[Rfam]
RNA: Small Cajal body specific RNA 3
Organism: Aquarana catesbeiana
RNA sequence: UAUGGAAGCUGAAUCUCUAAAUAUGUGCAGGUGAAGUAUAUCUGCCCAUACUAUCAGUCUUCCUAUAAUAAUGUCCUGGAGAUCUCUGUCUGGCUCUGUAAAGUAUACACAGCCUGAUCGUUCCUCUCCACACAAA
Numbered sequence: 001u002a003u004g005g006a007a008g009c010u011g012a013a014u015c016u017c018u019a020a021a022u023a024u025g026u027g028c029a030g031g032u033g034a035a036g037u038a039u040a041u042c043u044g045c046c047c048a049u050a051c052u053a054u055c056a057g058u059c060u061u062c063c064u065a066u067a068a069u070a071a072u073g074u075c076c077u078g079g080a081g082a083u084c085u086c087u088g089u090c091u092g093g094c095u096c097u098g099u100a101a102a103g104u105a106u107a108c109a110c111a112g113c114c115u116g117a118u119c120g121u122u123c124c125u126c127u128c129c130a131c132a133c134a135a136a
Stems, first nucleotide, its partner, number of pairs: 004063003008058005022050004027045002033041001078129005086120001088118003092114004097109002